[Rfam]
Nucleotides: 092
Base pairs, nucleotide, nucleotide: 001089002088003087004086005085007083008082010080011079012078013075016073017072018071019070020069022065023064024063025062026061032057033056034055035054040049041048042047
Number, partner (000 for none) and nucleotide at each position: 001089g002088g003087a004086u005085g006000g007083g008082c009000c010080g011079g012078g013075c014000g015000g016073c017072g018071c019070c020069a021000u022065g023064u024063u025062c026061c027000g028000a029000a030000c031000c032057u033056g034055g035054u036000c037000a038000g039000g040049u041048c042047c043000g044000g045000g046000a047042g048041g049040a050000a051000g052000c053000a054035g055034c056033c057032a058000u059000a060000a061026g062025g063024g064023a065022c066000c067000g068000c069020u070019g071018g072017c073016g074000a075013g076000c077000g078012c079011c080010c081000u082008g083007c084000c085005u086004a087003u088002c089001c090000g091000g092000g
This 92-nucleotide RNA sequence from Gordonibacter pamelaeae belongs to the Rfam family "Bacterial small signal recognition particle RNA". It is annotated as a non-coding RNA gene. The source organism's lineage runs through Bacteria, Bacillati, Actinomycetota, Eggerthellales and Gordonibacter pamelaeae. The signal recognition particle (SRP) is a universally conserved ribonucleoprotein involved in the co-translational targeting of proteins to membranes. The family is grouped with related families in Rfam's "SRP clan".